Record summary
The family of this 351-nucleotide sequence from Clostridium sp. CAG:413 is "Bacterial RNase P class A". The match comes from Rfam's covariance-model search (271 bits). It is annotated as a ribozyme. Lineage of the source: Bacteria > Bacillati > Eubacteriales > Clostridiaceae > Clostridium.
RNA sequence: CGAGUGGAUCGGGCAGUCGCGGGCGUCUUAUGACGCGUGAGGAAAGUCCGAGCUUCAUCGAGCAGGAUAACGGCUAACGGCCGCCGAGGGUGACCUUAGGGACAGUGCAACAGAGAUAUACCGCUUGCUUUUGCAAGUAAGGGUGGAAAGGCGAGGUAAGAGCUCACCGGCGUGCGGGAGACCGCACGGCCAUGUAAACCCUAUCCGAAGCAACACCGACAGGGGGAGGGUCCUUGACCCGGCGCUUGCUCAGCGAUACUCCGACGGGUGGCUAAAGCCGUGCAGCAAUGUACGGCGUAGACAGAUGAUUGCCUUAAAUGACAAAACUCGGCUUACAGAUCCUCUCGUGCA
Numbered sequence: 001c002g003a004g005u006g007g008a009u010c011g012g013g014c015a016g017u018c019g020c021g022g023g024c025g026u027c028u029u030a031u032g033a034c035g036c037g038u039g040a041g042g043a044a045a046g047u048c049c050g051a052g053c054u055u056c057a058u059c060g061a062g063c064a065g066g067a068u069a070a071c072g073g074c075u076a077a078c079g080g081c082c083g084c085c086g087a088g089g090g091u092g093a094c095c096u097u098a099g100g101g102a103c104a105g106u107g108c109a110a111c112a113g114a115g116a117u118a119u120a121c122c123g124c125u126u127g128c129u130u131u132u133g134c135a136a137g138u139a140a141g142g143g144u145g146g147a148a149a150g151g152c153g154a155g156g157u158a159a160g161a162g163c164u165c166a167c168c169g170g171c172g173u174g175c176g177g178g179a180g181a182c183c184g185c186a187c188g189g190c191c192a193u194g195u196a197a198a199c200c201c202u203a204u205c206c207g208a209a210g211c212a213a214c215a216c217c218g219a220c221a222g223g224g225g226g227a228g229g230g231u232c233c234u235u236g237a238c239c240c241g242g243c244g245c246u247u248g249c250u251c252a253g254c255g256a257u258a259c260u261c262c263g264a265c266g267g268g269u270g271g272c273u274a275a276a277g278c279c280g281u282g283c284a285g286c287a288a289u290g291u292a293c294g295g296c297g298u299a300g301a302c303a304g305a306u307g308a309u310u311g312c313c314u315u316a317a318a319u320g321a322c323a324a325a326a327c328u329c330g331g332c333u334u335a336c337a338g339a340u341c342c343u344c345u346c347g348u349g350c351a
Stems, first nucleotide, its partner, number of pairs: 001347004006342005011336001012313007020039002023036005044334003048331005053210004060251004065206005071083004085099001086097004100201002105199002107195003121142002123138006150168002153165003170190001171188007214270004226261003243255004277296008